[Rfam]
RNA sequence: UGCUGUCUAUGACGACCUGUUCCUAAACCCCCAGGGCUGAACAGGUCUGAUGUUCUUCAGCA
Numbered sequence: 001u002g003c004u005g006u007c008u009a010u011g012a013c014g015a016c017c018u019g020u021u022c023c024u025a026a027a028c029c030c031c032c033a034g035g036g037c038u039g040a041a042c043a044g045g046u047c048u049g050a051u052g053u054u055c056u057u058c059a060g061c062a
Stems, first nucleotide, its partner, number of pairs: 001062005014047009029036002